[Rfam]
RNA sequence: CUUCGUGUGAGGAGUGCAAAGCGUCUCUUCUGGGUCGAAACAAGGACAGACUCCAGCAACGCGUCUCAC
Numbered sequence: 001c002u003u004c005g006u007g008u009g010a011g012g013a014g015u016g017c018a019a020a021g022c023g024u025c026u027c028u029u030c031u032g033g034g035u036c037g038a039a040a041c042a043a044g045g046a047c048a049g050a051c052u053c054c055a056g057c058a059a060c061g062c063g064u065c066u067c068a069c
Stems, first nucleotide, its partner, number of pairs: 019064001021062003027056001031055003034051003
Cyano-1 RNA: a 69-nucleotide RNA sequence.
Rfam 15.1 lists 283 matches to the family in 194 species.
Rfam's curators put it in the seed alignment.